[Rfam]
This 77-nucleotide RNA from Crocodylus porosus belongs to the Rfam family "Mammalian CPEB3 ribozyme". Pairs were carried over by alignment from the consensus structure, which is taken from published work. The match comes from Rfam's covariance-model search (44 bits). The organism belongs to Crocodylus, within Eukaryota.
RNA sequence: GGUGACAAGACUGAGGCCACAGUAGAAGCACUCAUGGUGUAACCUUGUCAGAUUCCAAUGAACCUGCAAAUUCUGUU
Number, nucleotide and partner (000 for none) at each position: 001g000002g000003u000004g000005a000006c000007a000008a000009g000010a000011c000012u000013g000014a045015g044016g043017c000018c000019a000020c000021a077022g076023u075024a074025g073026a072027a071028g040029c039030a038031c000032u000033c000034a000035u000036g000037g000038u030039g029040u028041a000042a000043c016044c015045u014046u000047g000048u000049c066050a065051g064052a000053u062054u061055c060056c000057a000058a000059u000060g055061a054062a053063c000064c051065u050066g049067c000068a000069a000070a000071u027072u026073c025074u024075g023076u022077u021